[Rfam]
RNA sequence: GGUCACGAGCCCCGCCGUCUGGCCCGGCAGGCGGGGCAGCAACCCCCACGACACCGCGGGGUGCUCCCGGGCAAGACCGGGCCCGUCGCACGACGGGCAAGGAGUGUCA
Numbered sequence: 001g002g003u004c005a006c007g008a009g010c011c012c013c014g015c016c017g018u019c020u021g022g023c024c025c026g027g028c029a030g031g032c033g034g035g036g037c038a039g040c041a042a043c044c045c046c047c048a049c050g051a052c053a054c055c056g057c058g059g060g061g062u063g064c065u066c067c068c069g070g071g072c073a074a075g076a077c078c079g080g081g082c083c084c085g086u087c088g089c090a091c092g093a094c095g096g097g098c099a100a101g102g103a104g105u106g107u108c109a
Base pairs, nucleotide, nucleotide: 001078002077003076004075009037010036011035012034013033014032015031020029021028038065039064040063043061044060045059047056081098082097083096084095085094086093087092